[Rfam]
RNA: L31-Firmicutes ribosomal protein leader
Organism: Exiguobacterium chiriqhucha
RNA sequence: CUUUCUCUAGGUUGAAAGAAUACUUAGGGCAGAAGGAG
Number, nucleotide and partner (000 for none) at each position: 001c029002u028003u027004u026005c000006u019007c018008u017009a000010g000011g000012u000013u000014g000015a000016a000017a008018g007019a006020a000021u000022a000023c000024u000025u000026a004027g003028g002029g001030c000031a000032g000033a000034a000035g000036g000037a000038g000